[Rfam]
Rfam assigns this 91-nucleotide RNA from Streptococcus pluranimalium to the family "THF (Tetrahydrofolate) riboswitch aptamer". It scores 80 bits against the family's covariance model. Its family is annotated with tetrahydrofolate metabolic process in the Gene Ontology.
RNA sequence: AACAGAGUAAAUGAUUUGCGUUAAGUGUAUGUGAAUGGGAUGUUGUCACAUAACGAAACGAAACGUGCGAUAAAUCAUUGCAUCCGCUGUU
Numbered sequence: 001a002a003c004a005g006a007g008u009a010a011a012u013g014a015u016u017u018g019c020g021u022u023a024a025g026u027g028u029a030u031g032u033g034a035a036u037g038g039g040a041u042g043u044u045g046u047c048a049c050a051u052a053a054c055g056a057a058a059c060g061a062a063a064c065g066u067g068c069g070a071u072a073a074a075u076c077a078u079u080g081c082a083u084c085c086g087c088u089g090u091u
Base pairs, nucleotide, nucleotide: 001091002090003089004088005087010079011078012077013076014075015074016073017072018071019069020068021067025054026053028052029051030050031049032048033047034046038085039084040083041082042081058066059065060064
Dot-bracket structure: (((((....((((((((((((...((.(((((((...[[[[[...)))))))))...(((...)))))).))))))))).]]]]].)))))